[Rfam]
A member of the RNA family "SAM/SAH riboswitch aptamer", 48 nucleotides long. Rfam links the family to the GO terms regulation of gene expression and S-adenosylmethionine metabolic process. On this family, see Weickhmann et al., Nucleic Acids Res 2019: "The structure of the SAM/SAH-binding riboswitch". Pairs were carried over by alignment from the consensus structure, which is taken from published work. It is one of the family's seed sequences.

RNA sequence: UAUUGCACGCAACGGCUUCCUGACGCGUGAGUUUUAAUUAUCGGAGCA
Numbered sequence: 001u002a003u004u005g006c007a008c009g010c011a012a013c014g015g016c017u018u019c020c021u022g023a024c025g026c027g028u029g030a031g032u033u034u035u036a037a038u039u040a041u042c043g044g045a046g047c048a
Base pairs, nucleotide, nucleotide: 004031006029007028008027009026010025013022014021015047016046017045019044020043